Shown here is a 111-nucleotide RNA from Paenibacillus sp. TCA20, a member of the family "TPP riboswitch aptamer (THI element)". Lineage of the source: Bacteria > Bacillota > Bacilli > Caryophanales > Paenibacillus.
RNA sequence: ACAAUUUACUAGGGGAGCCCGAAAUGCCGGGCUGAGAUGGCACUGCAAGGUGCCGGACUCUUUGCACCUGAUCUGGAUCAUACCAGCGUAGGGAAGUAAUUGGCGAUAAAA
Number, nucleotide and partner (000 for none) at each position: 001a000002c000003a000004a000005u000006u099007u098008a097009c096010u095011a061012g060013g059014g058015g000016a000017g032018c031019c030020c029021g028022a000023a000024a000025u000026g000027c000028c021029g020030g019031g018032c017033u000034g000035a000036g000037a000038u000039g054040g053041c052042a051043c050044u000045g000046c000047a000048a000049g000050g043051u042052g041053c040054c039055g000056g000057a000058c014059u013060c012061u011062u000063u000064g000065c000066a000067c092068c091069u090070g089071a000072u000073c086074u085075g084076g083077a000078u000079c000080a000081u000082a000083c076084c075085a074086g073087c000088g000089u070090a069091g068092g067093g000094a000095a010096g009097u008098a007099a006100u000101u000102g000103g000104c000105g000106a000107u000108a000109a000110a000111a000
The match comes from Rfam's covariance-model search (85 bits). A reference for the family is Rodionov et al. (2002), "Comparative genomics of thiamin biosynthesis in procaryotes. New genes and regulatory mechanisms", J Biol Chem.